The family of this 494-nucleotide part of an RNA from Puccinia sorghi is "Eukaryotic large subunit ribosomal RNA".

RNA sequence: CCUGCCGAAGUUUCCCUCAGGAUAGCAAAGACUCGUAUCAGUUUUAUGAGGUAAAGCGAAUGAUUAGAGGCCUUGGGGAUGAAACAUCCUUAACCUAUUCUCAAACUUUAAAUAUGUAAGACGCUCCUGUUUCUUAAUUGAACGUGGGCAUGUGAAUGAGAGUCUUUAGUGGGCCAUUUUUGGUAAGCAGAACUGGCGAUGCGGGAUGAACCGAACGUGAGGUUAAGGUGCCGGAAUAUACACUCAUCAGACACCACAAAAGGUGUUAGUUCAUCUAGACAGCCGCACGGUGGCCAUGGAAGUCGGAAUCCGCUAAGGAGUGUGUAACAACUCAACGGCCGAAUGAACUAGCCCUGAAAAUGGAUGGCGCUUAAGUGUAUUACCCAUACCUCACCAUUAGUAUUGUUUUAAAAAUAUUAAUGAGUAGGCAGGCGUGGAGGUUAUGUAGCGAAGCCUUGGCAGUGAUGCUGGGUGGAACAGCCUCUAGUGCAGAU
Numbered sequence: 001c002c003u004g005c006c007g008a009a010g011u012u013u014c015c016c017u018c019a020g021g022a023u024a025g026c027a028a029a030g031a032c033u034c035g036u037a038u039c040a041g042u043u044u045u046a047u048g049a050g051g052u053a054a055a056g057c058g059a060a061u062g063a064u065u066a067g068a069g070g071c072c073u074u075g076g077g078g079a080u081g082a083a084a085c086a087u088c089c090u091u092a093a094c095c096u097a098u099u100c101u102c103a104a105a106c107u108u109u110a111a112a113u114a115u116g117u118a119a120g121a122c123g124c125u126c127c128u129g130u131u132u133c134u135u136a137a138u139u140g141a142a143c144g145u146g147g148g149c150a151u152g153u154g155a156a157u158g159a160g161a162g163u164c165u166u167u168a169g170u171g172g173g174c175c176a177u178u179u180u181u182g183g184u185a186a187g188c189a190g191a192a193c194u195g196g197c198g199a200u201g202c203g204g205g206a207u208g209a210a211c212c213g214a215a216c217g218u219g220a221g222g223u224u225a226a227g228g229u230g231c232c233g234g235a236a237u238a239u240a241c242a243c244u245c246a247u248c249a250g251a252c253a254c255c256a257c258a259a260a261a262g263g264u265g266u267u268a269g270u271u272c273a274u275c276u277a278g279a280c281a282g283c284c285g286c287a288c289g290g291u292g293g294c295c296a297u298g299g300a301a302g303u304c305g306g307a308a309u310c311c312g313c314u315a316a317g318g319a320g321u322g323u324g325u326a327a328c329a330a331c332u333c334a335a336c337g338g339c340c341g342a343a344u345g346a347a348c349u350a351g352c353c354c355u356g357a358a359a360a361u362g363g364a365u366g367g368c369g370c371u372u373a374a375g376u377g378u379a380u381u382a383c384c385c386a387u388a389c390c391u392c393a394c395c396a397u398u399a400g401u402a403u404u405g406u407u408u409u410a411a412a413a414a415u416a417u418u419a420a421u422g423a424g425u426a427g428g429c430a431g432g433c434g435u436g437g438a439g440g441u442u443a444u445g446u447a448g449c450g451a452a453g454c455c456u457u458g459g460c461a462g463u464g465a466u467g468c469u470g471g472g473u474g475g476a477a478c479a480g481c482c483u484c485u486a487g488u489g490c491a492g493a494u
Stems, first nucleotide, its partner, number of pairs: 001432006011024001013022003027167007042121007054109001055107002061103003066098001068096003073093006080086001123149004128144004173197004178192005202213003217394005223388001227384003236381001238380001241377003261355003265352010282339004288312003294306002313317001318333001322331002395422009433489001435486008445478002453473002459468003
Dot-bracket structure: ((((((....(.(((....))).)..(((((((........(((((((.....(((....(((..(.(((..((((((.(.....).))))))))).)..)))..)).).....))))))).((((.((((.........)))).))))...........))))))).....((((.(((((.....))))).))))....(((......)))...(((((.(...(((......(.(..(((.................(((.((((((((((.......((((..(((...((.........))...)))(...)(...((......)).)..))))...)))))))))))))...................)))..)))))...).)))))(((((((((..........)))))))))....))))))(.((((((((..((......((....(((....)))...))...))))))))))..).....